[Rfam]
RNA sequence: CUGAAACACCUAUCUCAGGGUCCUGGUAGCAUCAGGAGGUCUCCCUUUGGGGAGACAAGACAACCCUGUUUAAUAUUUAAACAGAAGUGUUCCCA
Numbered sequence: 001c002u003g004a005a006a007c008a009c010c011u012a013u014c015u016c017a018g019g020g021u022c023c024u025g026g027u028a029g030c031a032u033c034a035g036g037a038g039g040u041c042u043c044c045c046u047u048u049g050g051g052g053a054g055a056c057a058a059g060a061c062a063a064c065c066c067u068g069u070u071u072a073a074u075a076u077u078u079a080a081a082c083a084g085a086a087g088u089g090u091u092c093c094c095a
Stems, first nucleotide, its partner, number of pairs: 003024001006021002009019003032060002039056007066084008
Shown here is a 95-nucleotide RNA sequence from Microtus ochrogaster, a member of the family "G-CSF factor stem-loop destabilising element (SLDE)".
Pairs were carried over by alignment from the consensus structure, which is taken from published work.
By type it is a cis-regulatory element.
Lineage of the source: Eukaryota > Craniata > Gnathostomata > Eutheria > Microtus.
From the family's description: This family represents the granulocyte colony-stimulating factor stem-loop destabilising element (G-CSF SLDE). G-CSF is secreted by fibroblasts and endothelial cells in response to the inflammatory mediators interleukin-1 (IL-1) and tumour necrosis factor alpha and by activated macrophages. The synthesis of G-CSF is regulated both transcriptionally and through control of mRNA stability. In unstimulated cells G-CSF mRNA is unstable but becomes stabilised in response to IL-1 or tumour necrosis factor alpha, and also in the case of monocytes and macrophages, in response to lipopolysaccharide.
Rfam 15.1 lists 132 matches to the family in 132 species.
A reference for the family is Putland et al. (2002), "RNA destabilization by the granulocyte colony-stimulating factor stem-loop destabilizing element involves a single stem-loop that promotes deadenylation", Mol Cell Biol.